RNA sequence: AUUAAAUAGUAGUAAUAACCACUUUCUUGUUCUAGCAAGAGUGUUGGUAUUGCUCCUUUAU
Numbered sequence: 001a002u003u004a005a006a007u008a009g010u011a012g013u014a015a016u017a018a019c020c021a022c023u024u025u026c027u028u029g030u031u032c033u034a035g036c037a038a039g040a041g042u043g044u045u046g047g048u049a050u051u052g053c054u055c056c057u058u059u060a061u
Stems, first nucleotide, its partner, number of pairs: 006059001008057002011054007021044002024041006

Record summary:
This 61-nucleotide RNA sequence from Gossypium australe belongs to the Rfam family "Plastid-psbA-4 3UTR RNA". Taxonomically the source falls in Gossypium (Eukaryota, Streptophytina, Mesangiospermae, Malvoideae). The literature on the family includes a 2023 paper in Plant Commun by Richter et al., "Retrograde signaling in plants: A critical review focusing on the GUN pathway and beyond". The family's RNA type in Rfam is cis-regulatory element. A search with the family's covariance model found it, with a score of 59 bits. Plastid psbA-4 is a non-coding RNA (ncRNA) present in plastids. It was identified in inverted repeat sequences in the 3 prime untranslate region (3UTR) of photosystem II quinone-binding protein (psbA).